RNA: Proteo-phage-1 RNA
Organism: Pseudoxanthomonas winnipegensis
RNA sequence: CCGCAGGUCCGGCGCGGUGCGUGAUCGACGGCCAGGACCUGCGGGAGGCGACAGACGGAUUAGCCGGGAGUGCCGUCCAGAGCAAAACCCCGGCAGUU
Numbered sequence: 001c002c003g004c005a006g007g008u009c010c011g012g013c014g015c016g017g018u019g020c021g022u023g024a025u026c027g028a029c030g031g032c033c034a035g036g037a038c039c040u041g042c043g044g045g046a047g048g049c050g051a052c053a054g055a056c057g058g059a060u061u062a063g064c065c066g067g068g069a070g071u072g073c074c075g076u077c078c079a080g081a082g083c084a085a086a087a088c089c090c091c092g093g094c095a096g097u098u
Base pairs, nucleotide, nucleotide: 001017002016003015004014007052008051009050012049013048018043019042020041054077055076056075057074058073063094064093065092066091067090